[Rfam]
RNA sequence: GAGACACCCCUAUGGAGCAGGACUUGCUUUAGUAGGGCUUUGGUGCUUAUUGAGUCUGCCCCUUGAGUGUGUCACU
Number, nucleotide and partner (000 for none) at each position: 001g075002a000003g073004a072005c071006a070007c069008c000009c067010c000011u065012a064013u000014g062015g061016a000017g059018c058019a057020g000021g056022a055023c054024u000025u000026g000027c000028u000029u053030u052031a051032g050033u049034a048035g047036g046037g044038c043039u000040u000041u000042g000043g038044u037045g000046c036047u035048u034049a033050u032051u031052g030053a029054g023055u022056c021057u019058g018059c017060c000061c015062c014063u000064u012065g011066a000067g009068u000069g007070u006071g005072u004073c003074a000075c001076u000